Mammalian CPEB3 ribozyme: an 83-nucleotide RNA from Gadus morhua.
Rfam's curators write: The mammalian CPEB3 ribozyme is a self cleaving RNA located in the second intron of the CPEB3 gene which belongs to a family of genes regulating messenger RNA polyadenylation. This ribozyme is highly conserved and found only in mammals. The CPEB3 ribozyme is structurally and biochemically related to the human hepatitis delta virus (HDV) ribozyme and the HDV ribozyme is proposed to have arisen from the human transcriptome. There is currently only one other known self cleaving ribozyme in mammals, the CoTC motif.
Taxonomically the source falls in Gadus (Eukaryota, Deuterostomia, Actinopterygii, Ctenosquamata).
RNA sequence: AAUGGUUAGGGGGAUCAAGGUAGAAGAGUUCACGUCGCGAUCCCUGCCAAGUAAUAACAACAAUACUACUUGCGAAUUCUACC
Numbered sequence: 001a002a003u004g005g006u007u008a009g010g011g012g013g014a015u016c017a018a019g020g021u022a023g024a025a026g027a028g029u030u031c032a033c034g035u036c037g038c039g040a041u042c043c044c045u046g047c048c049a050a051g052u053a054a055u056a057a058c059a060a061c062a063a064u065a066c067u068a069c070u071u072g073c074g075a076a077u078u079c080u081a082c083c
Base pairs, nucleotide, nucleotide: 011044012043013042014041015040016039019083020082021081022080023079024078025077026038028036048072049071050070051069052068053067